[Rfam]
RNA sequence: GUUGAGGUCACUGGACGCAGCGGUUCAUCGAUCUGUUCCCUGAUCUCGUUUGUCCACAUACAGAUCAGGAAUCGGUCGAUAAACCUCUGCAUCCAGCGCUCAUCCU
Numbered sequence: 001g002u003u004g005a006g007g008u009c010a011c012u013g014g015a016c017g018c019a020g021c022g023g024u025u026c027a028u029c030g031a032u033c034u035g036u037u038c039c040c041u042g043a044u045c046u047c048g049u050u051u052g053u054c055c056a057c058a059u060a061c062a063g064a065u066c067a068g069g070a071a072u073c074g075g076u077c078g079a080u081a082a083a084c085c086u087c088u089g090c091a092u093c094c095a096g097c098g099c100u101c102a103u104c105c106u
Stems, first nucleotide, its partner, number of pairs: 013094003018089003022085004027080007036071003